A member of the RNA family "Group II catalytic intron D1-D4-7" from Methylocaldum marinum, 148 nucleotides long.
[Rfam]
RNA sequence: CCCGGUGUUCAGCCGCCGGUAGCCUAGGUACGGUGCUGGGUUGGUAACGACCCCGUGCCAAGCGUACUGACAAUGUAGCCACCUUACGGGGUACACUAGCUCCGUGAGGAGCCUAGUGUGAUAUCGGGAGUCGCACCCGGUUGAGGCG
Numbered sequence: 001c002c003c004g005g006u007g008u009u010c011a012g013c014c015g016c017c018g019g020u021a022g023c024c025u026a027g028g029u030a031c032g033g034u035g036c037u038g039g040g041u042u043g044g045u046a047a048c049g050a051c052c053c054c055g056u057g058c059c060a061a062g063c064g065u066a067c068u069g070a071c072a073a074u075g076u077a078g079c080c081a082c083c084u085u086a087c088g089g090g091g092u093a094c095a096c097u098a099g100c101u102c103c104g105u106g107a108g109g110a111g112c113c114u115a116g117u118g119u120g121a122u123a124u125c126g127g128g129a130g131u132c133g134c135a136c137c138c139g140g141u142u143g144a145g146g147c148g
Base pairs, nucleotide, nucleotide: 002019003018004017005016006015007014027068028067029066030065031064032059033058034057035056036055038053039052040051041050042049043048081092082091083090084089093119094118095117096116102109103108123141124140125139126138127137128136